[Rfam]
RNA sequence: AUGGUGGAACCCGAAAAACCUUAUAAGAGUAGGGA
Numbered sequence: 001a002u003g004g005u006g007g008a009a010c011c012c013g014a015a016a017a018a019c020c021u022u023a024u025a026a027g028a029g030u031a032g033g034g035a
Stems, first nucleotide, its partner, number of pairs: 003020003010034003
Rfam assigns this 35-nucleotide RNA from Sinomicrobium weinanense to the family "DUF805b RNA". The match comes from Rfam's covariance-model search (44 bits). It is annotated as a cis-regulatory element.